[Rfam]
RNA sequence: CCGUGCUAGACGGGGAGAUAGCGGCGCCCUGUAACCCGCAAUCCGCUCUAGCGGGGUUGAAGUCCUCAACUGAGGCCUAUAUCUGUUUGGUCAGCCUUUGACACGUGGUGUUGACGAUUUGGUCUUGCGCAAUGGAAGCCUGUGAACCAUGUCAGGUCCGGAAGGAAGCAGCAUUAAGCAGUGUUCUUCUAUGUGCCGCGAGGUAGCCUGAUCUGAGCUAACGAUCAAAGAAGCGCAGGUGGAUGUAUGUCGAAUUGAGGUGCACGG
Numbered sequence: 001c002c003g004u005g006c007u008a009g010a011c012g013g014g015g016a017g018a019u020a021g022c023g024g025c026g027c028c029c030u031g032u033a034a035c036c037c038g039c040a041a042u043c044c045g046c047u048c049u050a051g052c053g054g055g056g057u058u059g060a061a062g063u064c065c066u067c068a069a070c071u072g073a074g075g076c077c078u079a080u081a082u083c084u085g086u087u088u089g090g091u092c093a094g095c096c097u098u099u100g101a102c103a104c105g106u107g108g109u110g111u112u113g114a115c116g117a118u119u120u121g122g123u124c125u126u127g128c129g130c131a132a133u134g135g136a137a138g139c140c141u142g143u144g145a146a147c148c149a150u151g152u153c154a155g156g157u158c159c160g161g162a163a164g165g166a167a168g169c170a171g172c173a174u175u176a177a178g179c180a181g182u183g184u185u186c187u188u189c190u191a192u193g194u195g196c197c198g199c200g201a202g203g204u205a206g207c208c209u210g211a212u213c214u215g216a217g218c219u220a221a222c223g224a225u226c227a228a229a230g231a232a233g234c235g236c237a238g239g240u241g242g243a244u245g246u247a248u249g250u251c252g253a254a255u256u257g258a259g260g261u262g263c264a265c266g267g
Stems, first nucleotide, its partner, number of pairs: 001267006009058003012030004017025001019023001035055005064260006074251003078247001080245010094234001097229005105222002107219003116213004121208003124202006130193002133191005138184002140181004149174004157166003

A member of the RNA family "Bacterial large signal recognition particle RNA" from Listeria kieliensis, 267 nucleotides long.
By type it is a non-coding RNA gene.
The base pairs follow the family's consensus structure, which is taken from published work.
The match comes from Rfam's covariance-model search (204 bits).
For this family Rfam cites "Prediction of signal recognition particle RNA genes" (Regalia et al., Nucleic Acids Res, 2002).